[Rfam]
RNA: Trypanosomatid snoRNA TB11Cs5H1
Organism: Trypanosoma rangeli
RNA sequence: CAGCACACACCAACCAGCCCCUUCCGUGCUGCGAUGUGCAUGCUGGUGGCCAAAGUGUGGUGCGAGAGGU
Numbered sequence: 001c002a003g004c005a006c007a008c009a010c011c012a013a014c015c016a017g018c019c020c021c022u023u024c025c026g027u028g029c030u031g032c033g034a035u036g037u038g039c040a041u042g043c044u045g046g047u048g049g050c051c052a053a054a055g056u057g058u059g060g061u062g063c064g065a066g067a068g069g070u
Stems, first nucleotide, its partner, number of pairs: 003063004008057003017050003020046002026041004